[Rfam]
RNA sequence: GUGCAUGUGAUGAAGCAAAUCAGUAUGAAUGAAUUCAUGAUACUGUAAACGCUUUCUGAUGUA
Numbered sequence: 001g002u003g004c005a006u007g008u009g010a011u012g013a014a015g016c017a018a019a020u021c022a023g024u025a026u027g028a029a030u031g032a033a034u035u036c037a038u039g040a041u042a043c044u045g046u047a048a049a050c051g052c053u054u055u056c057u058g059a060u061g062u063a
Base pairs, nucleotide, nucleotide: 002063003062004061005060012055013054014053015052016051021045022044023043024042025041026040
RNA: Small nucleolar RNA Z39